[Rfam]
Nucleotides: 105
Base pairs, nucleotide, nucleotide: 005101006100007099008098011095012094013093015091016090017089018088019087021085022084023083024082027079028078029077030076031075033073035071
Number, partner (000 for none) and nucleotide at each position: 001000g002000u003000g004000u005101g006100a007099a008098u009000c010000a011095c012094a013093g014000u015091g016090c017089g018088g019087u020000u021085c022084u023083c024082c025000u026000c027079u028078g029077g030076c031075a032000u033073g034000a035071a036000g037000g038000a039000g040000c041000c042000u043000g044000c045000a046000a047000c048000a049000u050000g051000g052000c053000u054000a055000g056000g057000c058000c059000g060000c061000c062000g063000c064000c065000g066000g067000c068000c069000c070000u071035u072000c073033c074000u075031u076030g077029c078028c079027a080000a081000a082024g083023g084022a085021g086000a087019a088018u089017u090016g091015c092000c093013c094012u095011g096000c097000c098008a099007u100006u101005c102000a103000u104000g105000g
Annotation
A member of the RNA family "mir-399 microRNA precursor family" from Panicum miliaceum, 105 nucleotides long. For this family Rfam cites "Computational Identification of Plant MicroRNAs and Their Targets, Including a Stress-Induced miRNA" (Jones-Rhoades and Bartel, Mol Cell, 2004). Gene Ontology terms of the family: RISC complex and miRNA-mediated post-transcriptional gene silencing. Rfam describes the family as follows. mir-399 was identified in both Arabidopsis thaliana and Oryza sativa computationally and was later experimentally verified. mir-399 is thought to target mRNAs coding for a phosphatase transporter.